RNA: SAM riboswitch aptamer (S box leader)
RNA sequence: CACUUAUCAAGAAAGGCAGAGGGAUAUGGCCCGAUGAAGCCUUGGCAACCACACGCUUGCGUGAAAGGUGCCAAUUCCAUCAUAUACAAUUGUAUAUGAGAGAUAAGUC
Numbered sequence: 001c002a003c004u005u006a007u008c009a010a011g012a013a014a015g016g017c018a019g020a021g022g023g024a025u026a027u028g029g030c031c032c033g034a035u036g037a038a039g040c041c042u043u044g045g046c047a048a049c050c051a052c053a054c055g056c057u058u059g060c061g062u063g064a065a066a067g068g069u070g071c072c073a074a075u076u077c078c079a080u081c082a083u084a085u086a087c088a089a090u091u092g093u094a095u096a097u098g099a100g101a102g103a104u105a106a107g108u109c
Stems, first nucleotide, its partner, number of pairs: 002108007013043005021032003026080004044072004049068002052063003076101001081098006